A member of the RNA family "Iron response element II" from Liparis tanakae, 31 nucleotides long. From the family's description: IRE, TFRC, SLC40A1, SDHB, SLC11A2, CDC42BPA, ACO2, ALAS2_H.SAPIENS, CDC14A, EPAS1, ALAS2, qoxD, Hao1, NDUFS1, transferrin, Aconitate. Gene Ontology term of the family: response to iron ion. Rfam 15.1 lists 5,197 matches to the family in 722 species. By type it is a cis-regulatory element. Pairs were carried over by alignment from the consensus structure, which is taken from published work.
RNA sequence: UAUUUAUCAGUGGCAGCGCCCACUAUAAGUU
Numbered sequence: 001u002a003u004u005u006a007u008c009a010g011u012g013g014c015a016g017c018g019c020c021c022a023c024u025a026u027a028a029g030u031u
Stems, first nucleotide, its partner, number of pairs: 002030006009024005014018001